Shown here is a 92-nucleotide sequence from Esox lucius, a member of the family "mir-146 microRNA precursor family".
On this family, see Lagos-Quintana et al., Curr Biol 2002: "Identification of tissue-specific microRNAs from mouse".

[Rfam]
RNA sequence: AAUAACGUUUGGUAAUGAGAACUGAAUUCCAUAGAUGGUAGUUGCUCAGAUAGACAUCUAUGGACUCAGUUCUUUUUGCCUGGCAGCUACAU
Numbered sequence: 001a002a003u004a005a006c007g008u009u010u011g012g013u014a015a016u017g018a019g020a021a022c023u024g025a026a027u028u029c030c031a032u033a034g035a036u037g038g039u040a041g042u043u044g045c046u047c048a049g050a051u052a053g054a055c056a057u058c059u060a061u062g063g064a065c066u067c068a069g070u071u072c073u074u075u076u077u078g079c080c081u082g083g084c085a086g087c088u089a090c091a092u
Base pairs, nucleotide, nucleotide: 008083009082011080012079013078018073019072020071021070022069023068024067025066033059034058035057036056